[Rfam]
RNA sequence: UCACUCCCGGCAUGCGGUUUUCACGUUGAUCUGAGAGCUAAUCGAUAUGUUUCUGAGAUCAUAGUGAAAGCUACUUGCCGAAGUGA
Numbered sequence: 001u002c003a004c005u006c007c008c009g010g011c012a013u014g015c016g017g018u019u020u021u022c023a024c025g026u027u028g029a030u031c032u033g034a035g036a037g038c039u040a041a042u043c044g045a046u047a048u049g050u051u052u053c054u055g056a057g058a059u060c061a062u063a064g065u066g067a068a069a070g071c072u073a074c075u076u077g078c079c080g081a082a083g084u085g086a
Base pairs, nucleotide, nucleotide: 009079010078011077012076016072017071018070019069020068021067022066023065024064027061028060029059030058031057032056034054035053036052037050038049
Dot-bracket structure: ........((((...(((((((((..((((((.(((((..........)).))).))))))..)))))))))...)))).......